[Rfam]
RNA sequence: GACAAUAAACGAGCGUUGCAAUAAACCAUUCGGACCCGGGGGCGGUACCCGGCGCCUCCACCAUGAUCCGGCCCUGAGCCGCAAGCGGGCCUUUCGGCCGGAUGAUGAUGGGGGCGAAACAGGAUCGACGAGGGCGUAAAGAGCGACUUUUUGUCCGGCAUUGUACCACCGUUAUCGGGCUAAACUUGUAGUUGCAAACGACAACUAUGCGGAAGCUCGUCUCGCUGCCUAA
Numbered sequence: 001g002a003c004a005a006u007a008a009a010c011g012a013g014c015g016u017u018g019c020a021a022u023a024a025a026c027c028a029u030u031c032g033g034a035c036c037c038g039g040g041g042g043c044g045g046u047a048c049c050c051g052g053c054g055c056c057u058c059c060a061c062c063a064u065g066a067u068c069c070g071g072c073c074c075u076g077a078g079c080c081g082c083a084a085g086c087g088g089g090c091c092u093u094u095c096g097g098c099c100g101g102a103u104g105a106u107g108a109u110g111g112g113g114g115c116g117a118a119a120c121a122g123g124a125u126c127g128a129c130g131a132g133g134g135c136g137u138a139a140a141g142a143g144c145g146a147c148u149u150u151u152u153g154u155c156c157g158g159c160a161u162u163g164u165a166c167c168a169c170c171g172u173u174a175u176c177g178g179g180c181u182a183a184a185c186u187u188g189u190a191g192u193u194g195c196a197a198a199c200g201a202c203a204a205c206u207a208u209g210c211g212g213a214a215g216c217u218c219g220u221c222u223c224g225c226u227g228c229c230u231a232a
Base pairs, nucleotide, nucleotide: 001155002154003153004152005151014145015144016143017142026134027133030131031130032129036052037051038050039049040048053116054115055114056113057112058111059110156171157170158169
RNA: permuted transfer-messenger RNA